Background
Shown here is a 148-nucleotide RNA sequence from Agrobacterium sp. AGB01, a member of the family "Alphaproteobacterial sRNA ar9". It is annotated as a small RNA. It scores 125 bits against the family's covariance model. The literature on the family includes a 2012 paper in RNA Biol by del Val et al., "A survey of sRNA families in alpha-proteobacteria".
RNA sequence: AUAAAACAGGCAUGAAGAACAAAUUCCUGCCAAUUUCGCGGUCAGUCUUGGGAGGAUCAGAUCUUAGGCGCGCUUCGUCGCUGCCCCGGCAACGGUUACAGAUCACGCGAAAAUUAGAAAACAAGGCUUCAACGCCUUGUUUUUUUUU
Numbered sequence: 001a002u003a004a005a006a007c008a009g010g011c012a013u014g015a016a017g018a019a020c021a022a023a024u025u026c027c028u029g030c031c032a033a034u035u036u037c038g039c040g041g042u043c044a045g046u047c048u049u050g051g052g053a054g055g056a057u058c059a060g061a062u063c064u065u066a067g068g069c070g071c072g073c074u075u076c077g078u079c080g081c082u083g084c085c086c087c088g089g090c091a092a093c094g095g096u097u098a099c100a101g102a103u104c105a106c107g108c109g110a111a112a113a114u115u116a117g118a119a120a121a122c123a124a125g126g127c128u129u130c131a132a133c134g135c136c137u138u139g140u141u142u143u144u145u146u147u148u
Stems, first nucleotide, its partner, number of pairs: 003148004011029002014026003037109004045057004060104005067085003070081003086095003120141008
Dot-bracket structure: ..((((....((.(((.......))).)).......((((....((((.....))))..(((((..((((((......))).)))(((....)))....))))).))))..........((((((((......))))))))...))))